[Rfam]
RNA sequence: GCUUGUGCUGAGGGCCUGUUUUCUAAGCUACACACUGGCUACUUGUUCCUUACUCUUCUGUCUAGGGGAGAGUCCCUGGACCUACGUCAGAGAGUACCAUGUGGCUAUACAAAUUGACAUUCCCAUUUUCCAUAUAAAGUCUACAGGAAGCUAAUAGGCAUAGCAGGAGCAGCAUGGUGAAGGGGUGUCCCCCUCAGCUCUUCUAGUUACACAGGCAGUGCAUCUUCCCACAUGCACCAACCACACAGGACUUGUUCUCAGUGUGCAG
Numbered sequence: 001g002c003u004u005g006u007g008c009u010g011a012g013g014g015c016c017u018g019u020u021u022u023c024u025a026a027g028c029u030a031c032a033c034a035c036u037g038g039c040u041a042c043u044u045g046u047u048c049c050u051u052a053c054u055c056u057u058c059u060g061u062c063u064a065g066g067g068g069a070g071a072g073u074c075c076c077u078g079g080a081c082c083u084a085c086g087u088c089a090g091a092g093a094g095u096a097c098c099a100u101g102u103g104g105c106u107a108u109a110c111a112a113a114u115u116g117a118c119a120u121u122c123c124c125a126u127u128u129u130c131c132a133u134a135u136a137a138a139g140u141c142u143a144c145a146g147g148a149a150g151c152u153a154a155u156a157g158g159c160a161u162a163g164c165a166g167g168a169g170c171a172g173c174a175u176g177g178u179g180a181a182g183g184g185g186u187g188u189c190c191c192c193c194u195c196a197g198c199u200c201u202u203c204u205a206g207u208u209a210c211a212c213a214g215g216c217a218g219u220g221c222a223u224c225u226u227c228c229c230a231c232a233u234g235c236a237c238c239a240a241c242c243a244c245a246c247a248g249g250a251c252u253u254g255u256u257c258u259c260a261g262u263g264u265g266c267a268g
Stems, first nucleotide, its partner, number of pairs: 003268006009260003014216006022066004027061002037050002070253003075249003086098001089095001099114002102111002116189003122184003126181003129177002141172002144169001218237006
RNA: RNase MRP